[Rfam]
RNA sequence: GACACCUCAUUUCCUGUACUUUUUUGACUUCUUUUUUCUCCAAUAAUGUUUGGAGGCUCGCUCGUUGUUCAAAGACAAGUCAAAAACGAACAGAAAGCCUCCUCUCAAGGGGGCUUUUUUUAU
Numbered sequence: 001g002a003c004a005c006c007u008c009a010u011u012u013c014c015u016g017u018a019c020u021u022u023u024u025u026g027a028c029u030u031c032u033u034u035u036u037u038c039u040c041c042a043a044u045a046a047u048g049u050u051u052g053g054a055g056g057c058u059c060g061c062u063c064g065u066u067g068u069u070c071a072a073a074g075a076c077a078a079g080u081c082a083a084a085a086a087c088g089a090a091c092a093g094a095a096a097g098c099c100u101c102c103u104c105u106c107a108a109g110g111g112g113g114c115u116u117u118u119u120u121u122a123u
Stems, first nucleotide, its partner, number of pairs: 016091002019088001021086010032075003036071001039054004055066003094117010
Phenylalanine leader peptide: a 123-nucleotide sequence from Vibrio cholerae. The literature on the family includes a 1978 paper in Proc Natl Acad Sci U S A by Zurawski et al., "Nucleotide sequence of the leader region of the phenylalanine operon of Escherichia coli". It is one of the family's seed sequences.